[Rfam]
RNA sequence: AUUUAGAAAAGGCAAACUUACUGAAAAGUAAGGACGCAAAGUCACGAGCCUAAAGGUGUUUACCAAAGGUGGUUGGGCUGCCGAA
Numbered sequence: 001a002u003u004u005a006g007a008a009a010a011g012g013c014a015a016a017c018u019u020a021c022u023g024a025a026a027a028g029u030a031a032g033g034a035c036g037c038a039a040a041g042u043c044a045c046g047a048g049c050c051u052a053a054a055g056g057u058g059u060u061u062a063c064c065a066a067a068g069g070u071g072g073u074u075g076g077g078c079u080g081c082c083g084a085a
Stems, first nucleotide, its partner, number of pairs: 012037002017032006040079004045075003048070003055064003
A member of the RNA family "c-di-GMP-I riboswitch aptamer" from Pontibacillus yanchengensis, 85 nucleotides long. The organism belongs to Pontibacillus yanchengensis, within Bacteria. It scores 77 bits against the family's covariance model. Rfam 15.1 lists 5,092 matches to the family in 1,772 species.